RNA sequence: UCCGCGUUCAAAGGAUCGCAUUCAAAGCUCACGCACAGUAAGCGACUCUUCUCUCUCACGGGAGAACAGUAUGUCUUGCAUACCACAGGUUCCUUGACUGGACCAGCUUUGGGAGAAAGUCCCCGGACCACCUGACUUCUUCUCUUCCAGGAAGAAUCAUCAGGACUUGCCGAAAGGCGCCGCCAUAAAAGCACAUUCACAGCGGCUGAUCACACGCCUCCCCCUCUUCCUCAAAAGGCCCAUUCCUCUUCGUCAGCCUCGACCUUGACGUCGUUUGUACUCAUCCUUUUCAUCUCGGCGUCCAUAGUAUCUCUUUCCUACGUCGAGGCAGUAUCUGGACGGAUGAUGAUAUGAGUCUGUUCCUUGGGCUUUCGGGCUAGGUUCUACCAACACUGUGGGAUUGGGGUCCGGGCAACGAAUGCUUACAAUGAAGAGACGUCGAGGGAUGACUGGAGGCGGAAGAGAUGGUGUCCUGUGGGGGUCCAAGAGUGGCUUGGAGGUUGCGCAAUUCGUCACAUGCACAUAGUUAUGCGAUUACUCGGUCAGAAUCUCCUUGUGAGUUUCUGUUUAUCGGGUAACUCGACGGGGCUUAUUCUUGAAACGCGG
Numbered sequence: 001u002c003c004g005c006g007u008u009c010a011a012a013g014g015a016u017c018g019c020a021u022u023c024a025a026a027g028c029u030c031a032c033g034c035a036c037a038g039u040a041a042g043c044g045a046c047u048c049u050u051c052u053c054u055c056u057c058a059c060g061g062g063a064g065a066a067c068a069g070u071a072u073g074u075c076u077u078g079c080a081u082a083c084c085a086c087a088g089g090u091u092c093c094u095u096g097a098c099u100g101g102a103c104c105a106g107c108u109u110u111g112g113g114a115g116a117a118a119g120u121c122c123c124c125g126g127a128c129c130a131c132c133u134g135a136c137u138u139c140u141u142c143u144c145u146u147c148c149a150g151g152a153a154g155a156a157u158c159a160u161c162a163g164g165a166c167u168u169g170c171c172g173a174a175a176g177g178c179g180c181c182g183c184c185a186u187a188a189a190a191g192c193a194c195a196u197u198c199a200c201a202g203c204g205g206c207u208g209a210u211c212a213c214a215c216g217c218c219u220c221c222c223c224c225u226c227u228u229c230c231u232c233a234a235a236a237g238g239c240c241c242a243u244u245c246c247u248c249u250u251c252g253u254c255a256g257c258c259u260c261g262a263c264c265u266u267g268a269c270g271u272c273g274u275u276u277g278u279a280c281u282c283a284u285c286c287u288u289u290u291c292a293u294c295u296c297g298g299c300g301u302c303c304a305u306a307g308u309a310u311c312u313c314u315u316u317c318c319u320a321c322g323u324c325g326a327g328g329c330a331g332u333a334u335c336u337g338g339a340c341g342g343a344u345g346a347u348g349a350u351a352u353g354a355g356u357c358u359g360u361u362c363c364u365u366g367g368g369c370u371u372u373c374g375g376g377c378u379a380g381g382u383u384c385u386a387c388c389a390a391c392a393c394u395g396u397g398g399g400a401u402u403g404g405g406g407u408c409c410g411g412g413c414a415a416c417g418a419a420u421g422c423u424u425a426c427a428a429u430g431a432a433g434a435g436a437c438g439u440c441g442a443g444g445g446a447u448g449a450c451u452g453g454a455g456g457c458g459g460a461a462g463a464g465a466u467g468g469u470g471u472c473c474u475g476u477g478g479g480g481g482u483c484c485a486a487g488a489g490u491g492g493c494u495u496g497g498a499g500g501u502u503g504c505g506c507a508a509u510u511c512g513u514c515a516c517a518u519g520c521a522c523a524u525a526g527u528u529a530u531g532c533g534a535u536u537a538c539u540c541g542g543u544c545a546g547a548a549u550c551u552c553c554u555u556g557u558g559a560g561u562u563u564c565u566g567u568u569u570a571u572c573g574g575g576u577a578a579c580u581c582g583a584c585g586g587g588g589c590u591u592a593u594u595c596u597u598g599a600a601a602c603g604c605g606g
Base pairs, nucleotide, nucleotide: 002606003605004604005603006602007601008600009598010597011596014536015535016534017533018532019531022113023111024110025109026108027107028106040095041094042093044091045090046089117591118590119589121588122587123586124585138155139154140153141152142151368504369503372500373499377497378496379495380494384492385491386490387489478483538575539574540573541572542571543570
The record is a 606-nucleotide sequence from Exophiala mesophila, which matches "RNase MRP" in Rfam. The family's RNA type in Rfam is ribozyme. The source organism's lineage runs through Eukaryota, saccharomyceta, Pezizomycotina, Herpotrichiellaceae and Exophiala. Its family is annotated with ribonuclease MRP activity, ribonuclease MRP complex and rRNA processing in the Gene Ontology. It scores 83 bits against the family's covariance model.